[Rfam]
RNA sequence: GGGUUUCGAGCCGCAUCCUGCGGCUCGGGAGGUUUUCGUGUCGGUCGGGCCGCCGCCA
Number, nucleotide and partner (000 for none) at each position: 001g000002g000003g000004u000005u029006u028007c027008g026009a025010g024011c023012c022013g000014c000015a000016u000017c000018c000019u000020g000021c000022g012023g011024c010025u009026c008027g007028g006029g005030a000031g000032g000033u000034u000035u000036u000037c000038g000039u058040g057041u000042c055043g054044g053045u052046c000047g000048g000049g000050c000051c000052g045053c044054c043055g042056c000057c040058a039
nhaA-I RNA: a 58-nucleotide RNA sequence from Pseudothauera nasutitermitis. It is annotated as a riboswitch. Acidobacteria, Alphaproteobacteria, Betaproteobacteria and Gammaproteobacteria, Verrucomicrobia, cand. division NC10. Lineage of the source: Bacteria > Betaproteobacteria > Rhodocyclales > Zoogloeaceae > Pseudothauera.